[Rfam]
RNA sequence: GGUUUAAAGGGAGCGUAGGCCGUAGAUUAAGCGUGUUGUGAAAUGUAGAUGCUCAACAUCUGACUUGCAGCGCGAACUGGUUUACUAGAGUGUGCGCAACGUAGGCGGAAUUCGUCGUGUAGCGGUGAAAUGCUUAGAUAUGACGAAGAACUCCGAUUGCGAAGGCAGCUUACGGGAGCACAACUGACGCUGAAGCUCGAAGGUGCGGGUAUCAAACAGGAUUAGAUACCCUGGUAGUCCGCACAGUAAACGCUGGAUGCCCGCUGUUGGCUCAUUAGAGUCAGCGGCCAAGCGAAAGCAUUAAGCAUCCCACCUGGGGAGUACGCCGGCAACGGUGAAACUCAAAGGAAU
Numbered sequence: 001g002g003u004u005u006a007a008a009g010g011g012a013g014c015g016u017a018g019g020c021c022g023u024a025g026a027u028u029a030a031g032c033g034u035g036u037u038g039u040g041a042a043a044u045g046u047a048g049a050u051g052c053u054c055a056a057c058a059u060c061u062g063a064c065u066u067g068c069a070g071c072g073c074g075a076a077c078u079g080g081u082u083u084a085c086u087a088g089a090g091u092g093u094g095c096g097c098a099a100c101g102u103a104g105g106c107g108g109a110a111u112u113c114g115u116c117g118u119g120u121a122g123c124g125g126u127g128a129a130a131u132g133c134u135u136a137g138a139u140a141u142g143a144c145g146a147a148g149a150a151c152u153c154c155g156a157u158u159g160c161g162a163a164g165g166c167a168g169c170u171u172a173c174g175g176g177a178g179c180a181c182a183a184c185u186g187a188c189g190c191u192g193a194a195g196c197u198c199g200a201a202g203g204u205g206c207g208g209g210u211a212u213c214a215a216a217c218a219g220g221a222u223u224a225g226a227u228a229c230c231c232u233g234g235u236a237g238u239c240c241g242c243a244c245a246g247u248a249a250a251c252g253c254u255g256g257a258u259g260c261c262c263g264c265u266g267u268u269g270g271c272u273c274a275u276u277a278g279a280g281u282c283a284g285c286g287g288c289c290a291a292g293c294g295a296a297a298g299c300a301u302u303a304a305g306c307a308u309c310c311c312a313c314c315u316g317g318g319g320a321g322u323a324c325g326c327c328g329g330c331a332a333c334g335g336u337g338a339a340a341c342u343c344a345a346a347g348g349a350a351u
Stems, first nucleotide, its partner, number of pairs: 001314003009311001011198004016192001018191003022085007030078002032074009046062006089185003092181004097176001100174007107151001111147008122133003159166002203244006213237001217233004255310006263288011292299002316343003325336004
Shown here is a 351-nucleotide part of an RNA from Segatella oulorum, a member of the family "Bacterial small subunit ribosomal RNA". NCBI's taxonomy places the organism under Bacteria, Bacteroidota, Bacteroidia, Prevotellaceae, Segatella oulorum. The family's consensus secondary structure is taken from published work.